This 359-nucleotide RNA from Cupriavidus sp. HPC(L) belongs to the Rfam family "transfer-messenger RNA".
The family's consensus secondary structure is taken from published work.
A reference for the family is Williams and Bartel (1996), "Phylogenetic analysis of tmRNA secondary structure", RNA.
[Rfam]
RNA sequence: GGGGCCGACCUGGUUUCGACGUGGGUUGCAAAGCAGUAGAGGGCAUACCGAGGACCCGUCACCUCGUAAAUCAAUGGGAACGCAAUAACUGCUAACGACGAACGUUACGCACUGGCAGCCUAAGGGCCGCCGUCCUCGCACUGGCUCGCUGACGGGCUAGGGUCGCAAGACCACGCGAGGUCAUUGACGUCAGAUAAGCCCUGCGGGUGUCACGACCUCAGGGACGAAAACCAAGUGACUCGCCGUCGUAGAGCGUGUUCGUCCGCGAUGCGGCGGUUAAAUCAAAUGACAGAACUAAGUAUGUAGAACUCUCUGUGGAGGAUCUGCGGACGCGGGUUCGAUUCCCGCCGGCUCCACCA
Numbered sequence: 001g002g003g004g005c006c007g008a009c010c011u012g013g014u015u016u017c018g019a020c021g022u023g024g025g026u027u028g029c030a031a032a033g034c035a036g037u038a039g040a041g042g043g044c045a046u047a048c049c050g051a052g053g054a055c056c057c058g059u060c061a062c063c064u065c066g067u068a069a070a071u072c073a074a075u076g077g078g079a080a081c082g083c084a085a086u087a088a089c090u091g092c093u094a095a096c097g098a099c100g101a102a103c104g105u106u107a108c109g110c111a112c113u114g115g116c117a118g119c120c121u122a123a124g125g126g127c128c129g130c131c132g133u134c135c136u137c138g139c140a141c142u143g144g145c146u147c148g149c150u151g152a153c154g155g156g157c158u159a160g161g162g163u164c165g166c167a168a169g170a171c172c173a174c175g176c177g178a179g180g181u182c183a184u185u186g187a188c189g190u191c192a193g194a195u196a197a198g199c200c201c202u203g204c205g206g207g208u209g210u211c212a213c214g215a216c217c218u219c220a221g222g223g224a225c226g227a228a229a230a231c232c233a234a235g236u237g238a239c240u241c242g243c244c245g246u247c248g249u250a251g252a253g254c255g256u257g258u259u260c261g262u263c264c265g266c267g268a269u270g271c272g273g274c275g276g277u278u279a280a281a282u283c284a285a286a287u288g289a290c291a292g293a294a295c296u297a298a299g300u301a302u303g304u305a306g307a308a309c310u311c312u313c314u315g316u317g318g319a320g321g322a323u324c325u326g327c328g329g330a331c332g333c334g335g336g337u338u339c340g341a342u343u344c345c346c347g348c349c350g351g352c353u354c355c356a357c358c359a
Stems, first nucleotide, its partner, number of pairs: 001355007020328008033316004038312004044303005049066005055078005111133002114131003118127002134180006141160006149193006200223003205218001209239005242277009253266003257295004261290003332348005